Glycine riboswitch aptamer: a 101-nucleotide sequence from Sphingomonas piscis. Lineage of the source: Bacteria > Pseudomonadati > Alphaproteobacteria > Sphingomonadaceae > Sphingomonas.
RNA sequence: CAGUCUGGAAAGCGUCCCGCCACAAGCGGGGCCACCGAAGGGGUAACUUGCGGCUCUCCCCUUUGCCGCAGGGAAAGCUCUCAGGUCGAAGCGACAGACGG
Dot-bracket structure: (.(((((......((((((.......)))))).(((((..(((...((.......................))....))))).)))........))))).)
Numbered sequence: 001c002a003g004u005c006u007g008g009a010a011a012g013c014g015u016c017c018c019g020c021c022a023c024a025a026g027c028g029g030g031g032c033c034a035c036c037g038a039a040g041g042g043g044u045a046a047c048u049u050g051c052g053g054c055u056c057u058c059c060c061c062u063u064u065g066c067c068g069c070a071g072g073g074a075a076a077g078c079u080c081u082c083a084g085g086u087c088g089a090a091g092c093g094a095c096a097g098a099c100g101g
Stems, first nucleotide, its partner, number of pairs: 001101001003099005014032006034086003037082002041080003047073002